[Rfam]
RNA sequence: UGGAAGUGAUGAAAUAGAGAUAAUUGGAUGUGCCUUUGAAUGGAGUGUGUGUGCUAACUGGGGUUGAAACCAGGUUAGACUGGGGGUGGGGGGGUGAGGAAUGUGUGCAAGUGGUGCAGGUGUGGGAAAGGCUUUGAAUGGGGGCGCUGAUGGUGCAGUGCUGCUUCCGGAGUGCAUCUGAGGCAUGUUGUGAAACUGGGGUGCUGCUUACAACACUGCCGAUGAUUAAAGCCCAAAAGAAGCCCACCAAGACAAGCCUGGGCAUCCUACAUCUCUGACAGGUUCACUCAUGAAAGUGUGACCCUGUGAGCUGAUCCAA
Numbered sequence: 001u002g003g004a005a006g007u008g009a010u011g012a013a014a015u016a017g018a019g020a021u022a023a024u025u026g027g028a029u030g031u032g033c034c035u036u037u038g039a040a041u042g043g044a045g046u047g048u049g050u051g052u053g054c055u056a057a058c059u060g061g062g063g064u065u066g067a068a069a070c071c072a073g074g075u076u077a078g079a080c081u082g083g084g085g086g087u088g089g090g091g092g093g094g095u096g097a098g099g100a101a102u103g104u105g106u107g108c109a110a111g112u113g114g115u116g117c118a119g120g121u122g123u124g125g126g127a128a129a130g131g132c133u134u135u136g137a138a139u140g141g142g143g144g145c146g147c148u149g150a151u152g153g154u155g156c157a158g159u160g161c162u163g164c165u166u167c168c169g170g171a172g173u174g175c176a177u178c179u180g181a182g183g184c185a186u187g188u189u190g191u192g193a194a195a196c197u198g199g200g201g202u203g204c205u206g207c208u209u210a211c212a213a214c215a216c217u218g219c220c221g222a223u224g225a226u227u228a229a230a231g232c233c234c235a236a237a238a239g240a241a242g243c244c245c246a247c248c249a250a251g252a253c254a255a256g257c258c259u260g261g262g263c264a265u266c267c268u269a270c271a272u273c274u275c276u277g278a279c280a281g282g283u284u285c286a287c288u289c290a291u292g293a294a295a296g297u298g299u300g301a302c303c304c305u306g307u308g309a310g311c312u313g314a315u316c317c318a319a
Stems, first nucleotide, its partner, number of pairs: 001318004186215008195205001197203002
Shown here is a 319-nucleotide RNA from Tricholaema leucomelas, a member of the family "Small Cajal body-specific RNA 7". NCBI's taxonomy places the organism under Eukaryota, Eumetazoa, Chordata, Sauria, Tricholaema lacrymosa. A search with the family's covariance model found it, with a score of 150 bits. Rfam classes the family as a small Cajal body RNA. The pairing is the family consensus, mapped onto this sequence. A reference for the family is Darzacq et al. (2002), "Cajal body-specific small nuclear RNAs: a novel class of 2'-O-methylation and pseudouridylation guide RNAs", EMBO J.